[Rfam]
RNA: Bacterial small signal recognition particle RNA
Organism: Lacisediminihabitans profunda
RNA sequence: CGAGGCUCCUCGCGUGGCGCCAUCCAGGCCAACUCCCCCAGGACGGAAACGUAGCAAGGGUAACCGGGCUCUGGCGGGUGCGCGAGGGGUCUUUUCU
Numbered sequence: 001c002g003a004g005g006c007u008c009c010u011c012g013c014g015u016g017g018c019g020c021c022a023u024c025c026a027g028g029c030c031a032a033c034u035c036c037c038c039c040a041g042g043a044c045g046g047a048a049a050c051g052u053a054g055c056a057a058g059g060g061u062a063a064c065c066g067g068g069c070u071c072u073g074g075c076g077g078g079u080g081c082g083c084g085a086g087g088g089g090u091c092u093u094u095u096c097u
Stems, first nucleotide, its partner, number of pairs: 004091011015078001018076005024068002027065002035060003043052003